A member of the RNA family "Vault RNA" from Cairina moschata, 99 nucleotides long.
Pairs were carried over by alignment from the consensus structure, which is taken from published work.
Rfam describes the family as follows. This family of RNAs are found as part of the enigmatic vault ribonucleoprotein complex.
RNA sequence: GGGCCAGAUAUAGCCCAGCGGCUCCUUUGGCUGCUUGUAAUGGCAUUUCAUUCCCUGCCCCAGCACGGGUUUGAUCCCACGGGCACCCCUGGCCCACUC
Numbered sequence: 001g002g003g004c005c006a007g008a009u010a011u012a013g014c015c016c017a018g019c020g021g022c023u024c025c026u027u028u029g030g031c032u033g034c035u036u037g038u039a040a041u042g043g044c045a046u047u048u049c050a051u052u053c054c055c056u057g058c059c060c061c062a063g064c065a066c067g068g069g070u071u072u073g074a075u076c077c078c079a080c081g082g083g084c085a086c087c088c089c090u091g092g093c094c095c096a097c098u099c
Stems, first nucleotide, its partner, number of pairs: 002094006013084004018080001020078002027074004